[Rfam]
RNA sequence: UAUUUGUUGUGCCAAACUUGUUGUGAAGCAGGGACGGAAAGCCAUGGGUCUUAAUGCUAAGAUCGCCAGGUUGCCAAA
Numbered sequence: 001u002a003u004u005u006g007u008u009g010u011g012c013c014a015a016a017c018u019u020g021u022u023g024u025g026a027a028g029c030a031g032g033g034a035c036g037g038a039a040a041g042c043c044a045u046g047g048g049u050c051u052u053a054a055u056g057c058u059a060a061g062a063u064c065g066c067c068a069g070g071u072u073g074c075c076a077a078a
Stems, first nucleotide, its partner, number of pairs: 012037002017032006040072004045068003048063003
This 78-nucleotide RNA from Sulfurovum sp. AR belongs to the Rfam family "c-di-GMP-I riboswitch aptamer".
Pairs were carried over by alignment from the consensus structure, which is taken from published work.